RNA sequence: AUAAUGAUACUUGCGUCCAGUCUCAGGUCGAGCGUUGAAGCGGAAGCAAUUCCGUGAGCCGUCGCAACCAAAGAGGGCGUCCUGGCGAGAACCGCGGGGAGGUGAAAUUCCUAUGA
Numbered sequence: 001a002u003a004a005u006g007a008u009a010c011u012u013g014c015g016u017c018c019a020g021u022c023u024c025a026g027g028u029c030g031a032g033c034g035u036u037g038a039a040g041c042g043g044a045a046g047c048a049a050u051u052c053c054g055u056g057a058g059c060c061g062u063c064g065c066a067a068c069c070a071a072a073g074a075g076g077g078c079g080u081c082c083u084g085g086c087g088a089g090a091a092c093c094g095c096g097g098g099g100a101g102g103u104g105a106a107a108u109u110c111c112u113a114u115g116a
Stems, first nucleotide, its partner, number of pairs: 012113001013080006081099003085095003100112003
This 116-nucleotide RNA sequence belongs to the Rfam family "pemK RNA". It is one of the family's seed sequences. By type it is a cis-regulatory element.